[Rfam]
RNA sequence: GAAGUGCGAACCAAGCAGCCAGCACAAGUUGGCAUAAGGCUUGGAGCUGACCUUGGCAACGAGGUCAUACA
Numbered sequence: 001g002a003a004g005u006g007c008g009a010a011c012c013a014a015g016c017a018g019c020c021a022g023c024a025c026a027a028g029u030u031g032g033c034a035u036a037a038g039g040c041u042u043g044g045a046g047c048u049g050a051c052c053u054u055g056g057c058a059a060c061g062a063g064g065u066c067a068u069a070c071a
Stems, first nucleotide, its partner, number of pairs: 011044005018033005048067008
Dot-bracket structure: ..........(((((..(((((......)))))......)))))...((((((((....))))))))....